Rfam assigns this 109-nucleotide RNA sequence from Prosthecomicrobium pneumaticum to the family "Guanidine-I riboswitch aptamer". NCBI's taxonomy places the organism under Bacteria, Pseudomonadati, Pseudomonadota, Alphaproteobacteria, Prosthecomicrobium.
[Rfam]
RNA sequence: CGAGUUGGCGGCUAGGGUUCCGGUCUCGAGAUGAGACGCUGGUCCGAGAGCUGCCGCCGGGGCGGGAGACAUCCGCCCCCGGGCACGGCGGGACAAAAGCCCGGGAGAC
Numbered sequence: 001c002g003a004g005u006u007g008g009c010g011g012c013u014a015g016g017g018u019u020c021c022g023g024u025c026u027c028g029a030g031a032u033g034a035g036a037c038g039c040u041g042g043u044c045c046g047a048g049a050g051c052u053g054c055c056g057c058c059g060g061g062g063c064g065g066g067a068g069a070c071a072u073c074c075g076c077c078c079c080c081g082g083g084c085a086c087g088g089c090g091g092g093a094c095a096a097a098a099g100c101c102c103g104g105g106a107g108a109c
Base pairs, nucleotide, nucleotide: 007055008054009053010052011051012050015045016044020042021041022039023037024036025035026034027033028032057081059079060078061077062076063075064074065073084104086107090102091101092100